Shown here is a 115-nucleotide RNA sequence from Candidatus Brocadia sinica, a member of the family "c-di-GMP-I riboswitch aptamer". Rfam describes the family as follows. GEMM was predicted in a large-scale screen for bacterial structured RNA regulatory elements. Gene Ontology term of the family: cyclic-di-GMP binding. Lineage of the source: Bacteria > Candidatus Brocadiia > Candidatus Brocadiales > Candidatus Brocadiaceae > Candidatus Brocadia sinica.

RNA sequence: UCACGAUAAGGGCAAACCCUGAGCGAUCAGGGGACGCAAAGGACAGGGUCUUGUAAGCGGUUUAAACCGCUUAAACCGUUCAAACGGCUUUGAAAAAGACAGCCUUACUGCCAAA
Numbered sequence: 001u002c003a004c005g006a007u008a009a010g011g012g013c014a015a016a017c018c019c020u021g022a023g024c025g026a027u028c029a030g031g032g033g034a035c036g037c038a039a040a041g042g043a044c045a046g047g048g049u050c051u052u053g054u055a056a057g058c059g060g061u062u063u064a065a066a067c068c069g070c071u072u073a074a075a076c077c078g079u080u081c082a083a084a085c086g087g088c089u090u091u092g093a094a095a096a097a098g099a100c101a102g103c104c105u106u107a108c109u110g111c112c113a114a115a
Stems, first nucleotide, its partner, number of pairs: 012037002017032006040109002043106001045105003048100005